[Rfam]
RNA sequence: AUACAUGGCUUCUAGGGUUCCGGCAGCUUCCAGGUAAUUCCAAAAGAAUUUCAGAUCGCUGUGACUGGUCCGAGAGAAGCAAGCUGAUGACUCAGUGGCAUGACCAGUGGAUUUAUCCCCAAUUCUCUGGCCUUGAAAACCAGCUUUGAGCAUCAGCUACACGGCGGGAUAAAAGCCCGGGAGGU
Dot-bracket structure: .......(((((..((...((((((((..............................)))))..).)).))....))))).((((((((.............................................................)))))))).(.[...(((.......))).)..]..
RNA: Guanidine-I riboswitch aptamer